[Rfam]
RNA sequence: AGUAUAGUCUCUUAAAUACACAAAGCCCUUUAACAAGGGCUUUUU
Numbered sequence: 001a002g003u004a005u006a007g008u009c010u011c012u013u014a015a016a017u018a019c020a021c022a023a024a025g026c027c028c029u030u031u032a033a034c035a036a037g038g039g040c041u042u043u044u045u
Base pairs, nucleotide, nucleotide: 002019003018004017005016024041025040026039027038028037029036